Rfam assigns this 505-nucleotide part of an RNA from Natranaeroarchaeum sulfidigenes to the family "Archaeal small subunit ribosomal RNA". Rfam links the family to the GO terms ribosome and structural constituent of ribosome. The organism belongs to Natranaeroarchaeum, within Archaea. Rfam 15.1 lists 709 matches to the family in 491 species.

RNA sequence: AUUCCGGUUGAUCCUGCCGGAGGCCAUUGCUAUGGGGAUCCGAUUUAGCCAUGCUAGUCGCACGAGUUCAGACUCGUGGCGGAAAGCUCAGUAACACGUGGCCAAACUACCCUCUGGACGAGCAUACUCUCGGGAAACUGAGGCUAAUACUCGAUACCGUUCCGCUGCUGGAACUGCACGGAACCGCAAACGCUCCGGCGCCAGAGGCUGUGGCUGCGGCCGAUUAGGUAGACGGUGGGGUAACGGCCCACCGUGCCAGUAAUCGGUACGGGUUGUGAGAGCAAGAGCCCGGAGACGGUAUCUGAGACAAGAUACCGGGCCCUACGGGGCGCAGCAGGCGCGAAACCUUUACACUGCACGACAGUGCGAUAAGGGGAUCCCCAGUGCGAGGGCAUAUAGUCCUCGCUUUUCACCACCGUAGGGAGGUGGUGGAACAAGAGCUGGGCAAGACCGGUGCCAGCCGCCGCGGUAAUACCGGCAGCUCAAGUGAUGGCCGCGAUUAUUG
Numbered sequence: 001a002u003u004c005c006g007g008u009u010g011a012u013c014c015u016g017c018c019g020g021a022g023g024c025c026a027u028u029g030c031u032a033u034g035g036g037g038a039u040c041c042g043a044u045u046u047a048g049c050c051a052u053g054c055u056a057g058u059c060g061c062a063c064g065a066g067u068u069c070a071g072a073c074u075c076g077u078g079g080c081g082g083a084a085a086g087c088u089c090a091g092u093a094a095c096a097c098g099u100g101g102c103c104a105a106a107c108u109a110c111c112c113u114c115u116g117g118a119c120g121a122g123c124a125u126a127c128u129c130u131c132g133g134g135a136a137a138c139u140g141a142g143g144c145u146a147a148u149a150c151u152c153g154a155u156a157c158c159g160u161u162c163c164g165c166u167g168c169u170g171g172a173a174c175u176g177c178a179c180g181g182a183a184c185c186g187c188a189a190a191c192g193c194u195c196c197g198g199c200g201c202c203a204g205a206g207g208c209u210g211u212g213g214c215u216g217c218g219g220c221c222g223a224u225u226a227g228g229u230a231g232a233c234g235g236u237g238g239g240g241u242a243a244c245g246g247c248c249c250a251c252c253g254u255g256c257c258a259g260u261a262a263u264c265g266g267u268a269c270g271g272g273u274u275g276u277g278a279g280a281g282c283a284a285g286a287g288c289c290c291g292g293a294g295a296c297g298g299u300a301u302c303u304g305a306g307a308c309a310a311g312a313u314a315c316c317g318g319g320c321c322c323u324a325c326g327g328g329g330c331g332c333a334g335c336a337g338g339c340g341c342g343a344a345a346c347c348u349u350u351a352c353a354c355u356g357c358a359c360g361a362c363a364g365u366g367c368g369a370u371a372a373g374g375g376g377a378u379c380c381c382c383a384g385u386g387c388g389a390g391g392g393c394a395u396a397u398a399g400u401c402c403u404c405g406c407u408u409u410u411c412a413c414c415a416c417c418g419u420a421g422g423g424a425g426g427u428g429g430u431g432g433a434a435c436a437a438g439a440g441c442u443g444g445g446c447a448a449g450a451c452c453g454g455u456g457c458c459a460g461c462c463g464c465c466g467c468g469g470u471a472a473u474a475c476c477g478g479c480a481g482c483u484c485a486a487g488u489g490a491u492g493g494c495c496g497c498g499a500u501u502a503u504u505g
Stems, first nucleotide, its partner, number of pairs: 004020005022495010033383009042341001048339003052336003057080003062077006087294003097218007106211002111207007119153004128143006159184006167177002192199002220266003227257003232254008269291004273284004296317006319330004347373001349372003355368005386406008411431007438484006451478004460467002